[Rfam]
RNA: Bacterial large signal recognition particle RNA
RNA sequence: CCGUGCUAGACGGGGAGGUAGCGGUGCCCUGUAACCUGCAAUCCGCUAUAGCAGGGUUGAAUUCCUUGCUGAGGUACCUGCCUGUGGGGACUGCCCCUGGCAAGUGGUGUUGAUAACUGGGUCCUAUGCAACAGAAACCUGUGAACCCCGCCAGGUCCGGGAGGAAGCAACGGUAAGCAGGCACUUCUGUGUGCCAUGGGGAAGCCUGGUUGGAGCUAACUACCAGGGUAACGCCUGUAGGUUUAUAUCAAGGCAAGGUGCACGG
Numbered sequence: 001c002c003g004u005g006c007u008a009g010a011c012g013g014g015g016a017g018g019u020a021g022c023g024g025u026g027c028c029c030u031g032u033a034a035c036c037u038g039c040a041a042u043c044c045g046c047u048a049u050a051g052c053a054g055g056g057u058u059g060a061a062u063u064c065c066u067u068g069c070u071g072a073g074g075u076a077c078c079u080g081c082c083u084g085u086g087g088g089g090a091c092u093g094c095c096c097c098u099g100g101c102a103a104g105u106g107g108u109g110u111u112g113a114u115a116a117c118u119g120g121g122u123c124c125u126a127u128g129c130a131a132c133a134g135a136a137a138c139c140u141g142u143g144a145a146c147c148c149c150g151c152c153a154g155g156u157c158c159g160g161g162a163g164g165a166a167g168c169a170a171c172g173g174u175a176a177g178c179a180g181g182c183a184c185u186u187c188u189g190u191g192u193g194c195c196a197u198g199g200g201g202a203a204g205c206c207u208g209g210u211u212g213g214a215g216c217u218a219a220c221u222a223c224c225a226g227g228g229u230a231a232c233g234c235c236u237g238u239a240g241g242u243u244u245a246u247a248u249c250a251a252g253g254c255a256a257g258g259u260g261c262a263c264g265g
Stems, first nucleotide, its partner, number of pairs: 001265006009058003012030004017025001019023001035055005064258007073249004080242009092230002096227005104220002106217003114212009123200006129191002132189005138181005148173003156165003